[Rfam]
RNA sequence: UGUCGUGGCUGGAUUAGAGAUCGGCCAACGAUGUAUGUGUAACAACUUAACUUUUUAGGAGUUUAUUAUGUCUCUAAGUACAGAAGCAAAAGCAAAAAUUGUUGCUGAAUUCGGUCGUGAUGCA
Dot-bracket structure: ......((((((........))))))............................((.((((..........)))).))..............................................

The family of this 124-nucleotide sequence from Gallibacterium salpingitidis is "Ribosomal S15 leader". Gene Ontology term of the family: regulation of translation, ncRNA-mediated. About the family: The E. coli Ribosomal S15 gene 5' UTR can form two alternative structures. One that is a series of three hairpins, The other includes a pseudoknot. This structure causes translational regulation of the S15 protein. Its Rfam clan is "Ribosomal Protein S15 Leader clan". The literature on the family includes a 1996 paper in Biochimie by Benard et al., "Pseudoknot and translational control in the expression of the S15 ribosomal protein". A search with the family's covariance model found it, with a score of 104 bits.